This 76-nucleotide sequence from Parnassius apollo belongs to the Rfam family "Mammalian CPEB3 ribozyme". Its family is annotated with RNA nuclease activity in the Gene Ontology. It scores 42 bits against the family's covariance model. The family's consensus secondary structure is taken from published work. Taxonomically the source falls in Parnassius (Eukaryota, Opisthokonta, Bilateria, Insecta).

RNA sequence: UAAUACUAGUUGGGGGUCAUUGUAGAAGCGUGCUCGUCGAGACCCCUGCUAGCCUUUUUAGGGCUGUAAUUCUACA
Numbered sequence: 001u002a003a004u005a006c007u008a009g010u011u012g013g014g015g016g017u018c019a020u021u022g023u024a025g026a027a028g029c030g031u032g033c034u035c036g037u038c039g040a041g042a043c044c045c046c047u048g049c050u051a052g053c054c055u056u057u058u059u060a061g062g063g064c065u066g067u068a069a070u071u072c073u074a075c076a
Base pairs, nucleotide, nucleotide: 013046014045015044016043017042018041021076022075023074024073025072026071027070029039030038050066051065052064053063054062055061056060